[Rfam]
RNA sequence: CCUGUCGGUACUGUAGCAGCACAGAAUGGUUUGUGAGUUAUAACGGGGGUGCAGGCCGUACUGUGCUGCGGCAACAACGACAGG
Numbered sequence: 001c002c003u004g005u006c007g008g009u010a011c012u013g014u015a016g017c018a019g020c021a022c023a024g025a026a027u028g029g030u031u032u033g034u035g036a037g038u039u040a041u042a043a044c045g046g047g048g049g050u051g052c053a054g055g056c057c058g059u060a061c062u063g064u065g066c067u068g069c070g071g072c073a074a075c076a077a078c079g080a081c082a083g084g
Stems, first nucleotide, its partner, number of pairs: 001084006013072002016069009026059010